[Rfam]
RNA sequence: GAAGGAAGGUGAUUGGAGACAGGGAUGAGGCAGAGCAUGGGAUGGGGCCAUCAACAAUUUCCUUCUGUUUACUUGCAAAAGCGAGCUGUGAGAGAUUCGAGUGGGCACAAGAUACCUGGUGUUGUUGCUCCCUCCCCUGCACUGCCUCUUCCCUGGCUCCCCCGACCGUACUCUCU
Numbered sequence: 001g002a003a004g005g006a007a008g009g010u011g012a013u014u015g016g017a018g019a020c021a022g023g024g025a026u027g028a029g030g031c032a033g034a035g036c037a038u039g040g041g042a043u044g045g046g047g048c049c050a051u052c053a054a055c056a057a058u059u060u061c062c063u064u065c066u067g068u069u070u071a072c073u074u075g076c077a078a079a080a081g082c083g084a085g086c087u088g089u090g091a092g093a094g095a096u097u098c099g100a101g102u103g104g105g106c107a108c109a110a111g112a113u114a115c116c117u118g119g120u121g122u123u124g125u126u127g128c129u130c131c132c133u134c135c136c137c138u139g140c141a142c143u144g145c146c147u148c149u150u151c152c153c154u155g156g157c158u159c160c161c162c163c164g165a166c167c168g169u170a171c172u173c174u175c176u
Stems, first nucleotide, its partner, number of pairs: 016159003020155006028147006035140003039136001041135001045130004
A member of the RNA family "MIR408 microRNA precursor family" from Eragrostis curvula, 176 nucleotides long. The organism belongs to Eragrostis, within Eukaryota.